Bacterial RNase P class A: a 377-nucleotide sequence from Sphingomonas sp. CL5.1.

RNA sequence: CCAGAGGGCCGGGCGACCGCGGCUUCCCGCAAGGGAGGGCGAGGAAAGUCCGGGCUCCACGGAACGACGGUGGCGGGUAACGCCCGCCGGGGGCGACCCCAGGGAAAGUGCCACAGAGAGCAGACCGCCAACCGCCCGGCGACGGGCGCGGCAAGGGUGAAAGGGUGCGGCAAGAGCGCACCGCGCGGCUGGCAACAGCGGCGGCAUGGCAAACCCCACCGGGAGCAAGACCGAAUAGGGGCGGCAAAUCGGCGUGUUCCCGCCGGUCGCCCGGGUUGGUUGCUUGAGCCCGUCGGCGACGGCGGGCCUAGAGGAAUGGUCGCCCAGUCCCGGUCCGCCGGGAUGGACAGAACCCGGCUUACAGGCCCUCUGGCAUU
Numbered sequence: 001c002c003a004g005a006g007g008g009c010c011g012g013g014c015g016a017c018c019g020c021g022g023c024u025u026c027c028c029g030c031a032a033g034g035g036a037g038g039g040c041g042a043g044g045a046a047a048g049u050c051c052g053g054g055c056u057c058c059a060c061g062g063a064a065c066g067a068c069g070g071u072g073g074c075g076g077g078u079a080a081c082g083c084c085c086g087c088c089g090g091g092g093g094c095g096a097c098c099c100c101a102g103g104g105a106a107a108g109u110g111c112c113a114c115a116g117a118g119a120g121c122a123g124a125c126c127g128c129c130a131a132c133c134g135c136c137c138g139g140c141g142a143c144g145g146g147c148g149c150g151g152c153a154a155g156g157g158u159g160a161a162a163g164g165g166u167g168c169g170g171c172a173a174g175a176g177c178g179c180a181c182c183g184c185g186c187g188g189c190u191g192g193c194a195a196c197a198g199c200g201g202c203g204g205c206a207u208g209g210c211a212a213a214c215c216c217c218a219c220c221g222g223g224a225g226c227a228a229g230a231c232c233g234a235a236u237a238g239g240g241g242c243g244g245c246a247a248a249u250c251g252g253c254g255u256g257u258u259c260c261c262g263c264c265g266g267u268c269g270c271c272c273g274g275g276u277u278g279g280u281u282g283c284u285u286g287a288g289c290c291c292g293u294c295g296g297c298g299a300c301g302g303c304g305g306g307c308c309u310a311g312a313g314g315a316a317u318g319g320u321c322g323c324c325c326a327g328u329c330c331c332g333g334u335c336c337g338c339c340g341g342g343a344u345g346g347a348c349a350g351a352a353c354c355c356g357g358c359u360u361a362c363a364g365g366c367c368c369u370c371u372g373g374c375a376u377u
Stems, first nucleotide, its partner, number of pairs: 001373010011362001012324007020041002023038006046360003050357005055225004064258001068221005073087005088102001089100004103216002108214002110210003125156002127152003133148006164182006183205001184203003188199004229281004239272006250265005288307008
It is annotated as a ribozyme.